[Rfam]
RNA: Bacillaceae-1 RNA
Organism: Virgibacillus salarius
RNA sequence: AAACACGUACAAAGGGUUAAAUCGCCACAUCCUGUGGCAACGCCUUUGCGACCUACUCCCAUGUAGG
Numbered sequence: 001a002a003a004c005a006c007g008u009a010c011a012a013a014g015g016g017u018u019a020a021a022u023c024g025c026c027a028c029a030u031c032c033u034g035u036g037g038c039a040a041c042g043c044c045u046u047u048g049c050g051a052c053c054u055a056c057u058c059c060c061a062u063g064u065a066g067g
Stems, first nucleotide, its partner, number of pairs: 010048006024038005052067005